[Rfam]
Nucleotides: 132
Base pairs, nucleotide, nucleotide: 004123005122007120009119010118016039017038018037019036020035021034023032024031025030042074043073044072045071046070047069049067050066051065052064053063054062076089077088078087079086094113095112096111097110099108100107101106124131125130
Number, partner (000 for none) and nucleotide at each position: 001000a002000g003000a004123u005122g006000a007120g008000a009119g010118a011000u012000a013000c014000a015000c016039c017038c018037g019036c020035c021034c022000a023032c024031a025030g026000g027000g028000g029000a030025c031024u032023g033000c034021g035020g036019g037018c038017g039016g040000a041000c042074a043073c044072c045071g046070g047069g048000c049067c050066g051065g052064g053063g054062c055000c056000u057000c058000c059000c060000c061000a062054g063053c064052u065051u066050c067049g068000a069047c070046c071045u072044g073043g074042u075000c076089g077088u078087g079086c080000c081000c082000u083000c084000g085000c086079g087078c088077a089076c090000a091000c092000a093000a094113c095112c096111g097110g098000c099108g100107c101106c102000u103000g104000a105000c106101g107100g108099c109000u110097c111096c112095g113094g114000g115000a116000u117000c118010u119009c120007c121000a122005c123004a124131c125130c126000g127000a128000u129000c130125g131124g132000a
Shown here is a 132-nucleotide RNA from Streptomyces hygroscopicus, a member of the family "Streptomyces RNA 5676".
The sequence is in the family's curated seed alignment.
Rfam classes the family as a small RNA.
NCBI's taxonomy places the organism under Bacteria, Kitasatosporales, Streptomycetaceae, Streptomyces, Streptomyces hygroscopicus subsp. jinggangensis.